The record is a 257-nucleotide sequence from Actinophytocola xinjiangensis, which matches "Actinobacteria sRNA Ms_IGR-5" in Rfam. The literature on the family includes a 2013 paper in RNA by Li et al., "Identification of small RNAs in Mycobacterium smegmatis using heterologous Hfq". It scores 78 bits against the family's covariance model.
RNA sequence: ACACGAGAGAGGAGGUGGUCCAACAGUGAAUUGCUAUCGGACUCGUGAGGUGGCUGUCCGCUAGGACCACCGACCGGACAGAUGUGGUUGGGCCGGCUGCGCAACACGGCUGACACCAGCACCGCUGGUGCCGUAGACGCGCGGUGUGGUCGGCGAAUACCAGGCAGUCACCCGGCCCCCGGAGCUCUCAGGGACCUCGUCCGACCCUGAGCCCGCGCCCUUGACGGAGCGCGGGAGACGCCCGGGGGUCGCAUCAU
Numbered sequence: 001a002c003a004c005g006a007g008a009g010a011g012g013a014g015g016u017g018g019u020c021c022a023a024c025a026g027u028g029a030a031u032u033g034c035u036a037u038c039g040g041a042c043u044c045g046u047g048a049g050g051u052g053g054c055u056g057u058c059c060g061c062u063a064g065g066a067c068c069a070c071c072g073a074c075c076g077g078a079c080a081g082a083u084g085u086g087g088u089u090g091g092g093c094c095g096g097c098u099g100c101g102c103a104a105c106a107c108g109g110c111u112g113a114c115a116c117c118a119g120c121a122c123c124g125c126u127g128g129u130g131c132c133g134u135a136g137a138c139g140c141g142c143g144g145u146g147u148g149g150u151c152g153g154c155g156a157a158u159a160c161c162a163g164g165c166a167g168u169c170a171c172c173c174g175g176c177c178c179c180c181g182g183a184g185c186u187c188u189c190a191g192g193g194a195c196c197u198c199g200u201c202c203g204a205c206c207c208u209g210a211g212c213c214c215g216c217g218c219c220c221u222u223g224a225c226g227g228a229g230c231g232c233g234g235g236a237g238a239c240g241c242c243c244g245g246g247g248g249u250c251g252c253a254u255c256a257u
Base pairs, nucleotide, nucleotide: 014058015057016056017055018054019053059155060154061153062152064151065150067149068148069147070146173251174250175249176248177247178246179245180244181243182242184241185240188210189209190208191207192206193205